Record summary
This 130-nucleotide sequence from Otolemur garnettii belongs to the Rfam family "Small nucleolar RNA SNORA51". The source organism's lineage runs through Eukaryota, Metazoa, Euteleostomi, Lorisiformes and Otolemur. The family has 9 seed sequences and 2,121 matches in Rfam 15.1. Its family is annotated with RNA processing and nucleolus in the Gene Ontology. ACA51 is a member of the H/ACA class of snoRNA that guide the sites of modification of uridines to pseudouridines. A search with the family's covariance model found it, with a score of 91 bits. It is annotated as an H/ACA-box small nucleolar RNA.
[Rfam]
RNA sequence: GACCUCCUGGUCUUACCACAGGCUGUGUUCUCACACUGACUGUAUAGGAGGAGGAGGCCGAGGAAACCUACCCUCGGUCCGCCCCAGCCAGGCCCCACGCCUGGUCCAUAUUAUGAACGGGGGAAUAUGG
Numbered sequence: 001g002a003c004c005u006c007c008u009g010g011u012c013u014u015a016c017c018a019c020a021g022g023c024u025g026u027g028u029u030c031u032c033a034c035a036c037u038g039a040c041u042g043u044a045u046a047g048g049a050g051g052a053g054g055a056g057g058c059c060g061a062g063g064a065a066a067c068c069u070a071c072c073c074u075c076g077g078u079c080c081g082c083c084c085c086a087g088c089c090a091g092g093c094c095c096c097a098c099g100c101c102u103g104g105u106c107c108a109u110a111u112u113a114u115g116a117a118c119g120g121g122g123g124a125a126u127a128u129g130g
Base pairs, nucleotide, nucleotide: 003057004056005055006054007053008052019042020041021040025036026035027034028033071122072121073120074119087106088104089103090102091101092100093099